RNA sequence: GUGCAUCCAGUAGAAUUGAACCUACGAAUUCGCCAAUUAUGAUUGGCGCUUAACCAUUCAGCCAUGGAUGC
Dot-bracket structure: ..((((((.((((........)))).............(((.(.((.(......).)).)..)))))))))
Rfam assigns this 71-nucleotide sequence from Malus domestica to the family "Plastid-ycf2 5UTR RNA". The literature on the family includes a 2023 paper in Plant Commun by Richter et al., "Retrograde signaling in plants: A critical review focusing on the GUN pathway and beyond". A search with the family's covariance model found it, with a score of 66 bits. It is annotated as a cis-regulatory element. Rfam's curators write: Plastid ycf2 is a non-coding RNA (ncRNA) recognised in plastids. It was found in the prime untranslated region (5UTR) of ycf2 genes, it presents a tRNA-like motif which suggests it can be involved in mRNA maturation, particularly involved in defining the precise 5' end of the transcript.